The family of this 102-nucleotide RNA from Paenibacillus sp. FSL H7-0737 is "Purine riboswitch aptamer". A search with the family's covariance model found it, with a score of 82 bits. Pairs were carried over by alignment from the consensus structure, which is taken from published work.
RNA sequence: AAACUGAUGUCAUGAGCAACUCGUAUAAAACCGGGGAUAUGGCCCGGAAGUUUCUACCCGGGAACCGUAAAUUACCGGACUACGAGGAAAUAGGAUGAUAGA
Numbered sequence: 001a002a003a004c005u006g007a008u009g010u011c012a013u014g015a016g017c018a019a020c021u022c023g024u025a026u027a028a029a030a031c032c033g034g035g036g037a038u039a040u041g042g043c044c045c046g047g048a049a050g051u052u053u054c055u056a057c058c059c060g061g062g063a064a065c066c067g068u069a070a071a072u073u074a075c076c077g078g079a080c081u082a083c084g085a086g087g088a089a090a091u092a093g094g095a096u097g098a099u100a101g102a
Base pairs, nucleotide, nucleotide: 020086021085022084023083024082025081031047032046033045034044035043058078059077060076061075063073064072